[Rfam]
RNA sequence: GUACGUCGGCCGGGGUGCCCUCGCGAGAGGGCUGAGACAGACCCGCCGAACCUGAUCCGGGUCGUUCCGGCGUAGGGAGCCGACGCACGAGGGCG
Number, nucleotide and partner (000 for none) at each position: 001g000002u000003a000004c000005g000006u083007c082008g081009g080010c079011c045012g044013g043014g042015g000016u039017g032018c031019c030020c029021u028022c000023g000024c000025g000026a000027g000028a021029g020030g019031g018032c017033u000034g000035a000036g000037a000038c000039a016040g000041a000042c014043c013044c012045g011046c000047c000048g000049a000050a000051c076052c075053u074054g073055a000056u000057c070058c069059g068060g067061g000062u000063c000064g000065u000066u000067c060068c059069g058070g057071c000072g000073u054074a053075g052076g051077g000078a000079g010080c009081c008082g007083a006084c000085g000086c000087a000088c000089g000090a000091g000092g000093g000094c000095g000